[Rfam]
RNA sequence: UUAAGUAAAUUAAUUUUACCUAAGACUCAGGUGAUAGUUGUUAAUUCAGCUAUCUUAAUAUCCUGCCGAGGCAAAGCAAUUCGUGAUGAAUGACUUUGAACCCGUUGUCUUAGGACAACGGGAUUUUUUUGGGUAAAA
Dot-bracket structure: ...........................((((.((((((((......)))))))).......))))...................................(((((((((....)))))))))................
Numbered sequence: 001u002u003a004a005g006u007a008a009a010u011u012a013a014u015u016u017u018a019c020c021u022a023a024g025a026c027u028c029a030g031g032u033g034a035u036a037g038u039u040g041u042u043a044a045u046u047c048a049g050c051u052a053u054c055u056u057a058a059u060a061u062c063c064u065g066c067c068g069a070g071g072c073a074a075a076g077c078a079a080u081u082c083g084u085g086a087u088g089a090a091u092g093a094c095u096u097u098g099a100a101c102c103c104g105u106u107g108u109c110u111u112a113g114g115a116c117a118a119c120g121g122g123a124u125u126u127u128u129u130u131g132g133g134u135a136a137a138a
Stems, first nucleotide, its partner, number of pairs: 028065004033054008101122009
Rfam assigns this 138-nucleotide sequence from Furfurilactobacillus rossiae to the family "Ribosomal protein L10 leader".